[Rfam]
RNA sequence: AAGUAAAUAAUAAGAAAUCAAACAAUCAAAACUGUCUGACACAAUCUGAGCUUGCUACAGAAAGAAAGUCUAACCUAUUCCGGUGUUCUCUUCUCCGUGAGACAACCCGUUAUAUAGACUUAAACAAU
Numbered sequence: 001a002a003g004u005a006a007a008u009a010a011u012a013a014g015a016a017a018u019c020a021a022a023c024a025a026u027c028a029a030a031a032c033u034g035u036c037u038g039a040c041a042c043a044a045u046c047u048g049a050g051c052u053u054g055c056u057a058c059a060g061a062a063a064g065a066a067a068g069u070c071u072a073a074c075c076u077a078u079u080c081c082g083g084u085g086u087u088c089u090c091u092u093c094u095c096c097g098u099g100a101g102a103c104a105a106c107c108c109g110u111u112a113u114a115u116a117g118a119c120u121u122a123a124a125c126a127a128u
Stems, first nucleotide, its partner, number of pairs: 008050001011043001014040001019038002022035003066121007076114003081109003089102004
RNA: Small nucleolar RNA SNORA28
Organism: Jaculus jaculus